RNA sequence: GGUCACGAGGGUCAGCGUCAAGCCCCGGCUUGCUGACCGGCAACCCUCCGUUCGCGGGCGGGGUGCUCCGGGUGAUGACCGGGCCCCGCACCACACCGGUGCCGGGCAAGCCGCGACC
Numbered sequence: 001g002g003u004c005a006c007g008a009g010g011g012u013c014a015g016c017g018u019c020a021a022g023c024c025c026c027g028g029c030u031u032g033c034u035g036a037c038c039g040g041c042a043a044c045c046c047u048c049c050g051u052u053c054g055c056g057g058g059c060g061g062g063g064u065g066c067u068c069c070g071g072g073u074g075a076u077g078a079c080c081g082g083g084c085c086c087c088g089c090a091c092c093a094c095a096c097c098g099g100u101g102c103c104g105g106g107c108a109a110g111c112c113g114c115g116a117c118c
Base pairs, nucleotide, nucleotide: 001080002079003078004077009038011037012036013035014034015033016032021030022029039067040066041065044063045062046061048058049057083107084106085105086104088102089101090100091099092098
The record is a 118-nucleotide sequence from Dactylosporangium vinaceum, which matches "SAM (S-adenosyl methionine) riboswitch aptamer" in Rfam.
SAM-IV is a mRNA element that regulates gene expression via direct sensing of S-adenosylmethionine (SAM or AdoMet).
Rfam 15.1 lists 2,360 matches to the family in 1,305 species.
Taxonomically the source falls in Dactylosporangium (Bacteria, Bacillati, Actinomycetota, Actinomycetes).